[Rfam]
The family of this 178-nucleotide sequence from Secundilactobacillus similis is "Lysine riboswitch aptamer". The match comes from Rfam's covariance-model search (108 bits). The base pairs follow the family's consensus structure, which is taken from published work.

Nucleotides: 178
Base pairs, nucleotide, nucleotide: 006173008171009170010169011168016083017082018081019080020079021078022077023076024075032068033067034066035065036064037063038062087116088115089114090113091112092111094109095108096107097106117143118142121139122138123137124136125135126134127133145163146162147161148160149159150158151157
Number, partner (000 for none) and nucleotide at each position: 001000g002000u003000u004000a005000a006173a007000a008171g009170a010169a011168g012000a013000g014000g015000u016083g017082c018081g019080a020079u021078g022077u023076u024075c025000a026000a027000g028000a029000g030000u031000c032068g033067c034066u035065g036064c037063u038062g039000u040000g041000a042000a043000g044000u045000c046000c047000a048000u049000c050000a051000g052000g053000a054000u055000u056000g057000a058000c059000g060000a061000u062038c063037a064036g065035u066034a067033g068032u069000u070000a071000a072000a073000g074000g075024g076023g077022a078021c079020g080019u081018u082017g083016c084000c085000g086000a087116a088115g089114c090113u091112a092111g093000g094109g095108u096107a097106c098000g099000c100000u101000g102000a103000u104000g105000a106097g107096u108095a109094c110000g111092c112091u113090g114089g115088u116087u117143g118142g119000g120000a121139c122138c123137u124136g125135u126134c127133u128000u129000a130000a131000g132000a133127g134126g135125g136124c137123a138122g139121g140000a141000a142118c143117u144000g145163u146162c147161g148160c149159a150158a151157c152000g153000a154000u155000g156000u157151g158150u159149u160148g161147c162146g163145g164000a165000g166000c167000g168011c169010u170009u171008c172000c173006u174000a175000c176000g177000u178000u